[Rfam]
RNA sequence: GCCCUGCUGGCGCAAUGGUAGCGCGUCAGACUUCUAAUCUGAAGGUUGCCGGUUCGAGCCCGGCGUAGGGUG
Numbered sequence: 001g002c003c004c005u006g007c008u009g010g011c012g013c014a015a016u017g018g019u020a021g022c023g024c025g026u027c028a029g030a031c032u033u034c035u036a037a038u039c040u041g042a043a044g045g046u047u048g049c050c051g052g053u054u055c056g057a058g059c060c061c062g063g064c065g066u067a068g069g070g071u072g
Base pairs, nucleotide, nucleotide: 001071002070003069004068005067006066007065010024011023012022013021026042027041028040029039030038048064049063050062051061052060
RNA: tRNA